[Rfam]
RNA sequence: GAGGGUAUGGCCCCUCGCUAUCGGCUUGCAGGAGUAGGUAGCAAACCACCAUAAGCGGCUUGGAUCAAAAGUCCCGGUCGUGAGCGUUAUGGAAAAGGCAUCGUAGAGAUGUCAGGU
Numbered sequence: 001g002a003g004g005g006u007a008u009g010g011c012c013c014c015u016c017g018c019u020a021u022c023g024g025c026u027u028g029c030a031g032g033a034g035u036a037g038g039u040a041g042c043a044a045a046c047c048a049c050c051a052u053a054a055g056c057g058g059c060u061u062g063g064a065u066c067a068a069a070a071g072u073c074c075c076g077g078u079c080g081u082g083a084g085c086g087u088u089a090u091g092g093a094a095a096a097g098g099c100a101u102c103g104u105a106g107a108g109a110u111g112u113c114a115g116g117u
Stems, first nucleotide, its partner, number of pairs: 001016005017042006024035004047116001049092006055081002058078003062074004097113006
The family of this 117-nucleotide sequence from Acinetobacter populi is "Group II catalytic intron D1-D4-2".
Lineage of the source: Bacteria > Pseudomonadati > Gammaproteobacteria > Moraxellales > Acinetobacter.
Pairs were carried over by alignment from the consensus structure.
Gene Ontology term of the family: Group II intron splicing.
Rfam describes the family as follows. Group II introns are found in rRNA, tRNA and mRNA of organelles in fungi, plants and protists, and also in mRNA in bacteria.